The record is a 78-nucleotide sequence from Ophiophagus hannah, which matches "mir-9/mir-79 microRNA precursor family" in Rfam. Pairs were carried over by alignment from the consensus structure, which was predicted with RNAalifold. The family has 214 seed sequences and 5,647 matches in Rfam 15.1.
[Rfam]
RNA sequence: UCAUUUCUACUUUCGGUUAUCUAGCUUUAUGAUGGCUUGAUAACACUCAUACAGCUAGAUAACCAAAGACAGAAACGG
Numbered sequence: 001u002c003a004u005u006u007c008u009a010c011u012u013u014c015g016g017u018u019a020u021c022u023a024g025c026u027u028u029a030u031g032a033u034g035g036c037u038u039g040a041u042a043a044c045a046c047u048c049a050u051a052c053a054g055c056u057a058g059a060u061a062a063c064c065a066a067a068g069a070c071a072g073a074a075a076c077g078g
Base pairs, nucleotide, nucleotide: 001078002077004075005074007072008071011068012067013066015064016063017062018061019060020059021058022057023056024055025054026053028051029050030049031048032047